[Rfam]
RNA sequence: CCCUACCAAGUGGGAGAGAGCGGCGAAAAGGCCGCCACCGAAGGCGCAACCGCCCCGGAAACGCUCAGGUGACAGGACCGCUUGGUGGUU
Numbered sequence: 001c002c003c004u005a006c007c008a009a010g011u012g013g014g015a016g017a018g019a020g021c022g023g024c025g026a027a028a029a030g031g032c033c034g035c036c037a038c039c040g041a042a043g044g045c046g047c048a049a050c051c052g053c054c055c056c057g058g059a060a061a062c063g064c065u066c067a068g069g070u071g072a073c074a075g076g077a078c079c080g081c082u083u084g085g086u087g088g089u090u
Stems, first nucleotide, its partner, number of pairs: 006085008020035004037070003040066002044064003050058002
Dot-bracket structure: .....((((((((......((((........)))).(((((..(((...((.....))...))))).))).......)))))))).....